[Rfam]
RNA sequence: CGCUCGUAGUUCGAUUAGAAGAAGCUUUGGUUUGUGAGUCAGUGUGUAUCGUCCGCGGUCACAUUCGAUGCAAGCUGUGUGGGUUUCUUCUGCUUUGGUGACUCGUGGUUGAAGUCUCAUUAACUUGAGAUGGAGAUUGCUACGCGGGUACCAUUGUCGAUACCGAAAACAAAACAGCGUGUUCAAAGCAGUCUAGCGACCGAAUGAUUCAGUUUGGGAUAUCAGAGGAUGGAGCGUUCAAGCUAUCUUUGUUGGUUUCUCAGUUUGGAUCGCGGAAUUGAUUGAACGCUUGUCCUGCGUGUCCUAUCUACUUGAGGUGGGUUCAGGCUUUCCAACAUGGUGUUAGGCUCGUAUGGAAACGUUCAGUCCUUCUGAAUUAACAGAGGCGACGGGGACUGUAUCUAUUGGAAGGCGAGGGGUGAAAUCCUUAGACCCUUCCAAGAGAAACGACAGCGAAGGCAUUCAGUAAUGGCGCCUUCAUUAAUCAAGAACGAGAGUGCAGGGAUCGAAGAUGAUCAGAUACCGUCGUAGUCUGCUACUGUAAACGAU
Numbered sequence: 001c002g003c004u005c006g007u008a009g010u011u012c013g014a015u016u017a018g019a020a021g022a023a024g025c026u027u028u029g030g031u032u033u034g035u036g037a038g039u040c041a042g043u044g045u046g047u048a049u050c051g052u053c054c055g056c057g058g059u060c061a062c063a064u065u066c067g068a069u070g071c072a073a074g075c076u077g078u079g080u081g082g083g084u085u086u087c088u089u090c091u092g093c094u095u096u097g098g099u100g101a102c103u104c105g106u107g108g109u110u111g112a113a114g115u116c117u118c119a120u121u122a123a124c125u126u127g128a129g130a131u132g133g134a135g136a137u138u139g140c141u142a143c144g145c146g147g148g149u150a151c152c153a154u155u156g157u158c159g160a161u162a163c164c165g166a167a168a169a170c171a172a173a174a175c176a177g178c179g180u181g182u183u184c185a186a187a188g189c190a191g192u193c194u195a196g197c198g199a200c201c202g203a204a205u206g207a208u209u210c211a212g213u214u215u216g217g218g219a220u221a222u223c224a225g226a227g228g229a230u231g232g233a234g235c236g237u238u239c240a241a242g243c244u245a246u247c248u249u250u251g252u253u254g255g256u257u258u259c260u261c262a263g264u265u266u267g268g269a270u271c272g273c274g275g276a277a278u279u280g281a282u283u284g285a286a287c288g289c290u291u292g293u294c295c296u297g298c299g300u301g302u303c304c305u306a307u308c309u310a311c312u313u314g315a316g317g318u319g320g321g322u323u324c325a326g327g328c329u330u331u332c333c334a335a336c337a338u339g340g341u342g343u344u345a346g347g348c349u350c351g352u353a354u355g356g357a358a359a360c361g362u363u364c365a366g367u368c369c370u371u372c373u374g375a376a377u378u379a380a381c382a383g384a385g386g387c388g389a390c391g392g393g394g395a396c397u398g399u400a401u402c403u404a405u406u407g408g409a410a411g412g413c414g415a416g417g418g419g420u421g422a423a424a425u426c427c428u429u430a431g432a433c434c435c436u437u438c439c440a441a442g443a444g445a446a447a448c449g450a451c452a453g454c455g456a457a458g459g460c461a462u463u464c465a466g467u468a469a470u471g472g473c474g475c476c477u478u479c480a481u482u483a484a485u486c487a488a489g490a491a492c493g494a495g496a497g498u499g500c501a502g503g504g505a506u507c508g509a510a511g512a513u514g515a516u517c518a519g520a521u522a523c524c525g526u527c528g529u530a531g532u533c534u535g536c537u538a539c540u541g542u543a544a545a546c547g548a549u
Base pairs, nucleotide, nucleotide: 002492004490005489009485010484011483383479384478385477386476387474388473390471391470395467396466397465398464400462401445402444405441406440407439408438409437410436411435412434416427417426418425453460454459497539498538499536500535501534502533507531511527512526513525514524
The record is a 549-nucleotide part of an RNA from Bihospites bacati, which matches "Eukaryotic small subunit ribosomal RNA" in Rfam. On this family, see Yusupov et al., Science 2001: "Crystal structure of the ribosome at 5.5 A resolution". Its Rfam clan is "SSU clan". Gene Ontology terms of the family: structural constituent of ribosome and ribosome. The base pairs follow the family's consensus structure, which is taken from published work. The sequence is in the family's curated seed alignment. Taxonomically the source falls in Bihospites (Eukaryota, Discoba, Euglenozoa, Symbiontida).